[Rfam]
RNA sequence: AAUGAGUGAUGAAAAAUGUUUUGGUCCCAGAUGAUGUCCAAUGAUGAUGUUACAUUUUUUGGAUGUU
Numbered sequence: 001a002a003u004g005a006g007u008g009a010u011g012a013a014a015a016a017u018g019u020u021u022u023g024g025u026c027c028c029a030g031a032u033g034a035u036g037u038c039c040a041a042u043g044a045u046g047a048u049g050u051u052a053c054a055u056u057u058u059u060u061g062g063a064u065g066u067u
Stems, first nucleotide, its partner, number of pairs: 001067004
RNA: Small nucleolar RNA SNORD73
Organism: Oryctolagus cuniculus